[Rfam]
RNA: GA-cis RNA
RNA sequence: AGGAGGAGCCGCCCAUCGUCUGCAAAGCAGACGAUUCUCAUGGCGGCGACGACUUGCCGCCGAAGCGGAGCUGAGGGGGCGCUACCAUUG
Numbered sequence: 001a002g003g004a005g006g007a008g009c010c011g012c013c014c015a016u017c018g019u020c021u022g023c024a025a026a027g028c029a030g031a032c033g034a035u036u037c038u039c040a041u042g043g044c045g046g047c048g049a050c051g052a053c054u055u056g057c058c059g060c061c062g063a064a065g066c067g068g069a070g071c072u073g074a075g076g077g078g079g080c081g082c083u084a085c086c087a088u089u090g
Stems, first nucleotide, its partner, number of pairs: 008047006017033006056080003060076002064072002